[Rfam]
RNA sequence: ACGUUGUUUCGGGGCGGAGUGAAAUUCUCCACCGGCGGUGACAGUCCGCGAACACGCUCUGCGUGCCGAUUUGGUGAAAUUCCAAAACCGACGGUAUAGUCCGGAUGAAAGAAACACAUC
Numbered sequence: 001a002c003g004u005u006g007u008u009u010c011g012g013g014g015c016g017g018a019g020u021g022a023a024a025u026u027c028u029c030c031a032c033c034g035g036c037g038g039u040g041a042c043a044g045u046c047c048g049c050g051a052a053c054a055c056g057c058u059c060u061g062c063g064u065g066c067c068g069a070u071u072u073g074g075u076g077a078a079a080u081u082c083c084a085a086a087a088c089c090g091a092c093g094g095u096a097u098a099g100u101c102c103g104g105a106u107g108a109a110a111g112a113a114a115c116a117c118a119u120c
Stems, first nucleotide, its partner, number of pairs: 005116006017029003031100002033090002035049004044088002053065002070086005092103003
Rfam assigns this 120-nucleotide RNA sequence from Fumia xinanensis to the family "FMN riboswitch aptamer (RFN element)". A search with the family's covariance model found it, with a score of 109 bits. NCBI's taxonomy places the organism under Bacteria, Bacillati, Clostridia, Eubacteriales, Fumia. Pairs were carried over by alignment from the consensus structure, which is taken from published work.